[Rfam]
This 77-nucleotide RNA from Scleropages formosus belongs to the Rfam family "mir-192/215 microRNA precursor family". On this family, see Lagos-Quintana et al., RNA 2003: "New microRNAs from mouse and human". Pairs were carried over by alignment from the consensus structure, which was predicted with PFOLD. Rfam 15.1 lists 810 matches to the family in 628 species. This family represents the human microRNA (miRNA) precursors mir-192 and mir-215. Animal miRNAs are transcribed as ~70nt precursors and subsequently processed by the Dicer enzyme to give a ~22nt product. In this case the mature sequence comes from the 5' arm of the precursor. The extents of the hairpin precursors are not generally known and are estimated based on hairpin prediction.
RNA sequence: GUAGGGUAAUGACCUAUGAAUUGACAGCCAGUGACUGGCAUUGGCCUGCCUGUCAGUUCUGUAGGCCACUGUCCUGC
Numbered sequence: 001g002u003a004g005g006g007u008a009a010u011g012a013c014c015u016a017u018g019a020a021u022u023g024a025c026a027g028c029c030a031g032u033g034a035c036u037g038g039c040a041u042u043g044g045c046c047u048g049c050c051u052g053u054c055a056g057u058u059c060u061g062u063a064g065g066c067c068a069c070u071g072u073c074c075u076g077c
Base pairs, nucleotide, nucleotide: 001077002076003075004074005073006072007071008070010068011067013065014064015063016062018059019058020057021056022055023054024053025052026051027050029048030047031046